[Rfam]
RNA: mir-132 microRNA precursor family
Organism: Cyprinus carpio
RNA sequence: CCCCUUGGCGACCAUGGCUGUAGACUGUUACCAUGUGCCAUCGCUACAGUAACAAUCUAAAGCCACGGUCACCAUGGAGAC
Numbered sequence: 001c002c003c004c005u006u007g008g009c010g011a012c013c014a015u016g017g018c019u020g021u022a023g024a025c026u027g028u029u030a031c032c033a034u035g036u037g038c039c040a041u042c043g044c045u046a047c048a049g050u051a052a053c054a055a056u057c058u059a060a061a062g063c064c065a066c067g068g069u070c071a072c073c074a075u076g077g078a079g080a081c
Stems, first nucleotide, its partner, number of pairs: 012068002015065004023057002026054006